[Rfam]
RNA sequence: GGUUGCAAGUUUAAGGCCAUAAUAGAUGUGCUCAUGGUGCAGCCCUGUCAGAUUACAACAAAUCUGCAAAUUCUGCU
Numbered sequence: 001g002g003u004u005g006c007a008a009g010u011u012u013a014a015g016g017c018c019a020u021a022a023u024a025g026a027u028g029u030g031c032u033c034a035u036g037g038u039g040c041a042g043c044c045c046u047g048u049c050a051g052a053u054u055a056c057a058a059c060a061a062a063u064c065u066g067c068a069a070a071u072u073c074u075g076c077u
Stems, first nucleotide, its partner, number of pairs: 015044003021077001023075004028040003049066006
A member of the RNA family "Mammalian CPEB3 ribozyme" from Alligator sinensis, 77 nucleotides long.